[Rfam]
RNA sequence: CUGCCUCAAAUUAAUGAGUAAGGAUAAUAUAGGAUUUGGGUGAUUCCAAUCCACUCGGUGUGCCUCACAGCCAUCGAUGAAAUCACCAAAUAUUUGGCGGGAUUAAAGAACGGCCUCUUGAUGAUCGCACACGCUACUUUCGUGAGCGGUCGUCAGAGUUGCUGGUCUCCCG
Numbered sequence: 001c002u003g004c005c006u007c008a009a010a011u012u013a014a015u016g017a018g019u020a021a022g023g024a025u026a027a028u029a030u031a032g033g034a035u036u037u038g039g040g041u042g043a044u045u046c047c048a049a050u051c052c053a054c055u056c057g058g059u060g061u062g063c064c065u066c067a068c069a070g071c072c073a074u075c076g077a078u079g080a081a082a083u084c085a086c087c088a089a090a091u092a093u094u095u096g097g098c099g100g101g102a103u104u105a106a107a108g109a110a111c112g113g114c115c116u117c118u119u120g121a122u123g124a125u126c127g128c129a130c131a132c133g134c135u136a137c138u139u140u141c142g143u144g145a146g147c148g149g150u151c152g153u154c155a156g157a158g159u160u161g162c163u164g165g166u167c168u169c170c171c172g
Stems, first nucleotide, its partner, number of pairs: 004023003008019001032052003036049004098172005108167002111164004117156002123151004130144004
This 172-nucleotide RNA from Ambispora leptoticha belongs to the Rfam family "U12 minor spliceosomal RNA". Rfam 15.1 lists 2,106 matches to the family in 1,170 species. Pairs were carried over by alignment from the consensus structure. For this family Rfam cites "Pre-mRNA splicing: the discovery of a new spliceosome doubles the challenge" (Tarn and Steitz, Trends Biochem Sci, 1997). The source organism's lineage runs through Eukaryota, Opisthokonta, Glomeromycotina, Archaeosporales and Ambispora. It scores 59 bits against the family's covariance model. It is annotated as a spliceosomal small nuclear RNA. Rfam links the family to the GO terms U12 snRNP, pre-mRNA branch point binding and mRNA branch site recognition.